[Rfam]
RNA: U4atac minor spliceosomal RNA
RNA sequence: ACCAUGCUUUCCUUGGGGUCACACUACUGUGUAAUGAGUGCACAAUGAGGUCAGUACUGCAAAUGCCUAUAGAUCGCACUGCAUCAACUGGAACUUUGCUUUACCUUGGUACAAUUUUUGGAAAA
Numbered sequence: 001a002c003c004a005u006g007c008u009u010u011c012c013u014u015g016g017g018g019u020c021a022c023a024c025u026a027c028u029g030u031g032u033a034a035u036g037a038g039u040g041c042a043c044a045a046u047g048a049g050g051u052c053a054g055u056a057c058u059g060c061a062a063a064u065g066c067c068u069a070u071a072g073a074u075c076g077c078a079c080u081g082c083a084u085c086a087a088c089u090g091g092a093a094c095u096u097u098g099c100u101u102u103a104c105c106u107u108g109g110u111a112c113a114a115u116u117u118u119u120g121g122a123a124a125a
Stems, first nucleotide, its partner, number of pairs: 007017003022059002026055004032049001038046002081112001083110004089103004094098001